Small nucleolar RNA SNORA11: a 135-nucleotide RNA sequence.
Rfam links the family to the GO terms nucleolus and RNA processing.
Pairs were carried over by alignment from the consensus structure, which was predicted with RNAalifold.
Rfam 15.1 lists 2,014 matches to the family in 202 species.
U107 (SNORA11) is a member of the H/ACA class of snoRNAs that guide the sites of modification of uridines to pseudouridines.
The sequence is in the family's curated seed alignment.

[Rfam]
RNA sequence: GGGGCGUGCUCAGACCGGGGGUGGGGGGCUGAAGAAAUGGCUCCUCUGUUUACAACACACCCAACGGGAAGCUGGGUUCACUGUGACAAGGGGCCCAAAACGCAUGGCCUGUCUAUAAACAAAUACCCAACAUGG
Numbered sequence: 001g002g003g004g005c006g007u008g009c010u011c012a013g014a015c016c017g018g019g020g021g022u023g024g025g026g027g028g029c030u031g032a033a034g035a036a037a038u039g040g041c042u043c044c045u046c047u048g049u050u051u052a053c054a055a056c057a058c059a060c061c062c063a064a065c066g067g068g069a070a071g072c073u074g075g076g077u078u079c080a081c082u083g084u085g086a087c088a089a090g091g092g093g094c095c096c097a098a099a100a101c102g103c104a105u106g107g108c109c110u111g112u113c114u115a116u117a118a119a120c121a122a123a124u125a126c127c128c129a130a131c132a133u134g135g
Base pairs, nucleotide, nucleotide: 002062003061004060006058007057008056019051020050021049022048023047024046025045026044027043028041029040030039075128076127078125082121083120084119088116090110091109092108094106